[Rfam]
RNA sequence: GUGCAUAUGAUGUAAACUUUACAUUGGACUGAAUGUUUGUGAUGCAUUCAAAGGAACCACUGAUGCCC
Numbered sequence: 001g002u003g004c005a006u007a008u009g010a011u012g013u014a015a016a017c018u019u020u021a022c023a024u025u026g027g028a029c030u031g032a033a034u035g036u037u038u039g040u041g042a043u044g045c046a047u048u049c050a051a052a053g054g055a056a057c058c059a060c061u062g063a064u065g066c067c068c
Base pairs, nucleotide, nucleotide: 001068003066004065005064
Dot-bracket structure: (.(((..........................................................))).)

Small nucleolar RNA SNORD42: a 68-nucleotide sequence from Menidia menidia.
About the family: snoRNA U42 is found in intron 3 of the ribosomal protein L23a (RPL23a) gene in humans and is also present in mice.
Rfam classes the family as a C/D-box small nucleolar RNA.
The family's consensus secondary structure was predicted with PFOLD.
A reference for the family is Galardi et al. (2002), "Purified box C/D snoRNPs are able to reproduce site-specific 2'-O-methylation of target RNA in vitro", Mol Cell Biol.
Its family is annotated with nucleolus and RNA processing in the Gene Ontology.